[Rfam]
RNA sequence: AAUGCGGCUAGGGGGCACCCGAAAAGCGACUCAUCACCGCCUGCCGCAUUCACUUCAAUGAUGC
Numbered sequence: 001a002a003u004g005c006g007g008c009u010a011g012g013g014g015g016c017a018c019c020c021g022a023a024a025a026g027c028g029a030c031u032c033a034u035c036a037c038c039g040c041c042u043g044c045c046g047c048a049u050u051c052a053c054u055u056c057a058a059u060g061a062u063g064c
Stems, first nucleotide, its partner, number of pairs: 001050008011020003026040003032063005

Rfam assigns this 64-nucleotide RNA sequence from Roufvirus pIS4A to the family "int-alpA RNA".
Rfam classes the family as a small RNA.
Pairs were carried over by alignment from the consensus structure, which is taken from published work.
About the family: Acidobacteria (1 example), Planctomycetes (1 example), Proteobacteria.
Taxonomically the source falls in Roufvirus pIS4A (Viruses, Duplodnaviria, Uroviricota, Caudoviricetes).